[Rfam]
RNA sequence: AUUGAAUGCACGCUGAAUUCCCGCCUCGCGGGAAACGGGGGAACCAUCAGGCCGCAAGGUCUACUGGGGUGAAUCCAAAAGAGACGAUAUCGUUACAGUCUCAUUAAGGUAGGGCGACUCUCACCGUCCGAAUCCGACAGCUAACCUCGUAAGCGUAAAGAGAGAGAUC
Numbered sequence: 001a002u003u004g005a006a007u008g009c010a011c012g013c014u015g016a017a018u019u020c021c022c023g024c025c026u027c028g029c030g031g032g033a034a035a036c037g038g039g040g041g042a043a044c045c046a047u048c049a050g051g052c053c054g055c056a057a058g059g060u061c062u063a064c065u066g067g068g069g070u071g072a073a074u075c076c077a078a079a080a081g082a083g084a085c086g087a088u089a090u091c092g093u094u095a096c097a098g099u100c101u102c103a104u105u106a107a108g109g110u111a112g113g114g115c116g117a118c119u120c121u122c123a124c125c126g127u128c129c130g131a132a133u134c135c136g137a138c139a140g141c142u143a144a145c146c147u148c149g150u151a152a153g154c155g156u157a158a159a160g161a162g163a164g165a166g167a168u169c
Stems, first nucleotide, its partner, number of pairs: 011155004018034006035150006045066002067135003075109002112129004
RNA: c-di-AMP riboswitch aptamer (ydaO/yuaA leader)